[Rfam]
RNA sequence: CUACGGGGAUGAUAAAAACUGAACUCUCUCUUUCUGAUGGAUUGGUGGAGAAGUGUAUACAUUCUGAGUAGC
Numbered sequence: 001c002u003a004c005g006g007g008g009a010u011g012a013u014a015a016a017a018a019c020u021g022a023a024c025u026c027u028c029u030c031u032u033u034c035u036g037a038u039g040g041a042u043u044g045g046u047g048g049a050g051a052a053g054u055g056u057a058u059a060c061a062u063u064c065u066g067a068g069u070a071g072c
Stems, first nucleotide, its partner, number of pairs: 001071004
RNA: Small nucleolar RNA SNORD26
Organism: Myotis lucifugus